[Rfam]
RNA sequence: UGGAAAAUUGCUCUUUUAGUAUUUGUCUAGCAGGCUUCCUUUAAAAGGAAGCCCAC
Numbered sequence: 001u002g003g004a005a006a007a008u009u010g011c012u013c014u015u016u017u018a019g020u021a022u023u024u025g026u027c028u029a030g031c032a033g034g035c036u037u038c039c040u041u042u043a044a045a046a047g048g049a050a051g052c053c054c055a056c
Base pairs, nucleotide, nucleotide: 033053034052035051036050037049038048039047040046
Shown here is a 56-nucleotide sequence, a member of the family "U7 small nuclear RNA". The family's consensus secondary structure was predicted with PFOLD. The literature on the family includes a 1994 paper in Nucleic Acids Res by Spycher et al., "3' end processing of mouse histone pre-mRNA: evidence for additional base-pairing between U7 snRNA and pre-mRNA". Rfam's curators put it in the seed alignment.